[Rfam]
RNA: Fungal signal recognition particle RNA
RNA sequence: UGGCUGUGAUGGCUUUUAGUGGAAGUGUACUUCUUGCGCACUCUCAGAUUUGUUAAAUUGUGUAAAAGAUUCUCUUGAGUUUUUUCGCUGUGUUCAAAGUGUCCAGUUCGAUCCUCGCGGUUUGAAUUUUCUUGACUACUUGAGGAAUCAGUACUGUCAGAUUCUGCUAAUUAAUAGCACCACCACUGGAGGGAAGCAAUUCAGCACAGUAAUGCUAUCCGUGACGGAGGCGAUACUGGAUGGCACAUUGUUCCGUUAGUUAAUAGUCUGGGAAAGCCUUAGUGUGACGACUCUAUUUUU
Numbered sequence: 001u002g003g004c005u006g007u008g009a010u011g012g013c014u015u016u017u018a019g020u021g022g023a024a025g026u027g028u029a030c031u032u033c034u035u036g037c038g039c040a041c042u043c044u045c046a047g048a049u050u051u052g053u054u055a056a057a058u059u060g061u062g063u064a065a066a067a068g069a070u071u072c073u074c075u076u077g078a079g080u081u082u083u084u085u086c087g088c089u090g091u092g093u094u095c096a097a098a099g100u101g102u103c104c105a106g107u108u109c110g111a112u113c114c115u116c117g118c119g120g121u122u123u124g125a126a127u128u129u130u131c132u133u134g135a136c137u138a139c140u141u142g143a144g145g146a147a148u149c150a151g152u153a154c155u156g157u158c159a160g161a162u163u164c165u166g167c168u169a170a171u172u173a174a175u176a177g178c179a180c181c182a183c184c185a186c187u188g189g190a191g192g193g194a195a196g197c198a199a200u201u202c203a204g205c206a207c208a209g210u211a212a213u214g215c216u217a218u219c220c221g222u223g224a225c226g227g228a229g230g231c232g233a234u235a236c237u238g239g240a241u242g243g244c245a246c247a248u249u250g251u252u253c254c255g256u257u258a259g260u261u262a263a264u265a266g267u268c269u270g271g272g273a274a275a276g277c278c279u280u281a282g283u284g285u286g287a288c289g290a291c292u293c294u295a296u297u298u299u300u
Stems, first nucleotide, its partner, number of pairs: 002014003018297006026286006038277002042273009066083007095250003099246004103239005108233003112228003115224006125163005133156002137153004142149002166172001174218006185210004193202003